[Rfam]
RNA sequence: GAUCGCGACGCGGGGUGCCCGGAGAGCCGGGCUGAGAUCACACCCGUCGAACCUGAUCUAGUUCGCACUAGCGAAGGGACGUCAACGUUGACCGCC
Number, nucleotide and partner (000 for none) at each position: 001g000002a000003u000004c000005g000006c000007g083008a082009c081010g080011c046012g045013g044014g043015g000016u040017g032018c031019c030020c029021g028022g000023a000024g000025a000026g000027c000028c021029g020030g019031g018032c017033u000034g000035a000036g000037a000038u000039c000040a016041c000042a000043c014044c013045c012046g011047u000048c000049g000050a000051a000052c077053c076054u075055g000056a000057u000058c071059u070060a069061g068062u000063u000064c000065g000066c000067a000068c061069u060070a059071g058072c000073g000074a000075a054076g053077g052078g000079a000080c010081g009082u008083c007084a000085a000086c000087g000088u000089u000090g000091a000092c000093c000094g000095c000096c000